[Rfam]
RNA sequence: GCUGAGCAAGUAGCGACUGCUUGUCACCCGAGCGGGGGCAACAAGGUGGUGUGGAUGCCAAUUGUGGCGCUUGGACCUGGGCUUGGUGUUGCAUUGUGUGUGGCCCGCCCGUUCCAAGUUGGUAGUGGGUUGUGGGCACUUUGGCGAAAGCCUUGGUGUCUCAGCACCUAGAGCGGUGGGCAUUGCGUGAGGCUGGUUUAACAGAGCAGCGAAUACCACCCGCUUUCAACGGUGGAAGGAUAACGAGCCGCUGCACUCCAGACCCACUUAGGCCCAUGUGCCCUCUCUGGCAGACCACCAUUUUU
Numbered sequence: 001g002c003u004g005a006g007c008a009a010g011u012a013g014c015g016a017c018u019g020c021u022u023g024u025c026a027c028c029c030g031a032g033c034g035g036g037g038g039c040a041a042c043a044a045g046g047u048g049g050u051g052u053g054g055a056u057g058c059c060a061a062u063u064g065u066g067g068c069g070c071u072u073g074g075a076c077c078u079g080g081g082c083u084u085g086g087u088g089u090u091g092c093a094u095u096g097u098g099u100g101u102g103g104c105c106c107g108c109c110c111g112u113u114c115c116a117a118g119u120u121g122g123u124a125g126u127g128g129g130u131u132g133u134g135g136g137c138a139c140u141u142u143g144g145c146g147a148a149a150g151c152c153u154u155g156g157u158g159u160c161u162c163a164g165c166a167c168c169u170a171g172a173g174c175g176g177u178g179g180g181c182a183u184u185g186c187g188u189g190a191g192g193c194u195g196g197u198u199u200a201a202c203a204g205a206g207c208a209g210c211g212a213a214u215a216c217c218a219c220c221c222g223c224u225u226u227c228a229a230c231g232g233u234g235g236a237a238g239g240a241u242a243a244c245g246a247g248c249c250g251c252u253g254c255a256c257u258c259c260a261g262a263c264c265c266a267c268u269u270a271g272g273c274c275c276a277u278g279u280g281c282c283c284u285c286u287c288u289g290g291c292a293g294a295c296c297a298c299c300a301u302u303u304u305u
Base pairs, nucleotide, nucleotide: 001039002038003037004022005021006020007019008018027036028035029034043304044303045302046301047300048299049298050297051296053295056292057291058290059289060288061286064283066281068280069279070278072276073275074274076272077271079265080264081263083261084260085259086258088257090255091254100251101250102249103248104247106245107244109239110238112237113236114235115234116233118230119229120228121227122226124224125223126222127167129165130164131163132162134161135160136159137158138157139156140155143152144151145150168173175220176219177218178217179216184213186211187210188209193204194203195202
The record is a 305-nucleotide sequence from Sorghum bicolor, which matches "Plant signal recognition particle RNA" in Rfam. It is annotated as a non-coding RNA gene. Taxonomically the source falls in Sorghum (Eukaryota, Streptophytina, Embryophyta, Magnoliopsida).